[Rfam]
RNA sequence: UUUAAUCAUUUACCACUUAUUAAUCUUUCCAAAUCAUAAAUAUGUGUAUCCAGUCAUCUGGAUUUGGAGUGGCUCCUGUCCACUCUGUUUGACGCCUCCCUGUUAAUAGACUUUGAGCCGCGGUUCCGCGGCUCUUUUUUU
Numbered sequence: 001u002u003u004a005a006u007c008a009u010u011u012a013c014c015a016c017u018u019a020u021u022a023a024u025c026u027u028u029c030c031a032a033a034u035c036a037u038a039a040a041u042a043u044g045u046g047u048a049u050c051c052a053g054u055c056a057u058c059u060g061g062a063u064u065u066g067g068a069g070u071g072g073c074u075c076c077u078g079u080c081c082a083c084u085c086u087g088u089u090u091g092a093c094g095c096c097u098c099c100c101u102g103u104u105a106a107u108a109g110a111c112u113u114u115g116a117g118c119c120g121c122g123g124u125u126c127c128g129c130g131g132c133u134c135u136u137u138u139u140u141u
Base pairs, nucleotide, nucleotide: 001044003042004041006015021036023034024033026031048063049062050061051060067085068084069083070082071081072080091104092103093102094101115134116133117132118131119130120129121128122127
Shown here is a 141-nucleotide RNA sequence from Roseibium aquae, a member of the family "Alphaproteobacterial sRNA BjrC1505". It is annotated as a small RNA. The match comes from Rfam's covariance-model search (110 bits). The literature on the family includes a 2012 paper in RNA Biol by Madhugiri et al., "Small RNAs of the Bradyrhizobium/Rhodopseudomonas lineage and their analysis".